Source information:
Rfam assigns this 179-nucleotide RNA from Apilactobacillus ozensis to the family "Lysine riboswitch aptamer".
RNA sequence: AAUCUAAGAAGAGGCGCAAAAGACAUUAGUAGUAGGUGCUAGCUAAUAAAGUAGCGAUGAACAUCUAUGAAAGGGGAUUUUGCCGAAAUUAUAAUAUGCUUUAUCAUAUUAUUUUUGGGUCUUAGUUUAAUAGACUAAGAACUGUCGUAGCAAAUAGGCUACGGAGUGCUUUCUAAGAU
Numbered sequence: 001a002a003u004c005u006a007a008g009a010a011g012a013g014g015c016g017c018a019a020a021a022g023a024c025a026u027u028a029g030u031a032g033u034a035g036g037u038g039c040u041a042g043c044u045a046a047u048a049a050a051g052u053a054g055c056g057a058u059g060a061a062c063a064u065c066u067a068u069g070a071a072a073g074g075g076g077a078u079u080u081u082g083c084c085g086a087a088a089u090u091a092u093a094a095u096a097u098g099c100u101u102u103a104u105c106a107u108a109u110u111a112u113u114u115u116u117g118g119g120u121c122u123u124a125g126u127u128u129a130a131u132a133g134a135c136u137a138a139g140a141a142c143u144g145u146c147g148u149a150g151c152a153a154a155u156a157g158g159c160u161a162c163g164g165a166g167u168g169c170u171u172u173c174u175a176a177g178a179u
Stems, first nucleotide, its partner, number of pairs: 006174001008172004016083006024075001032068007087116002091112008117143002120140008145164007